[Rfam]
RNA sequence: AAUACAUGAUGAGAAAAUGUUUCGGUCCCAGCUGAUGUACACUGAUAACUUAACAUUUUUCUGAUGUU
Number, nucleotide and partner (000 for none) at each position: 001a068002a067003u066004a065005c000006a000007u000008g000009a000010u000011g000012a000013g000014a000015a000016a000017a000018u000019g000020u000021u000022u000023c000024g000025g000026u000027c000028c000029c000030a000031g000032c000033u000034g000035a000036u000037g000038u000039a000040c000041a000042c000043u000044g000045a000046u000047a000048a000049c000050u000051u000052a000053a000054c000055a000056u000057u000058u000059u000060u000061c000062u000063g000064a000065u004066g003067u002068u001
Notes:
This 68-nucleotide RNA from Dasypus novemcinctus belongs to the Rfam family "Small nucleolar RNA SNORD73". It is annotated as a C/D-box small nucleolar RNA. It is one of the family's seed sequences. For this family Rfam cites "A novel snoRNA (U73) is encoded within the introns of the human and mouse ribosomal protein S3a genes" (Rebane et al., Gene, 1998). Rfam links the family to the GO terms nucleolus and RNA processing. The base pairs follow the family's consensus structure, which was predicted with PFOLD.